[Rfam]
RNA sequence: GACCCAACUGGGAAUGAAGUCUCCCAUUAACCGCCCGCAAGGGAUGAUGACUUCUGCCAAGUG
Numbered sequence: 001g002a003c004c005c006a007a008c009u010g011g012g013a014a015u016g017a018a019g020u021c022u023c024c025c026a027u028u029a030a031c032c033g034c035c036c037g038c039a040a041g042g043g044a045u046g047a048u049g050a051c052u053u054c055u056g057c058c059a060a061g062u063g
Stems, first nucleotide, its partner, number of pairs: 010025004016054006034043003

Fluoride riboswitch aptamer (crcB RNA motif): a 63-nucleotide RNA from Edaphobacter aggregans.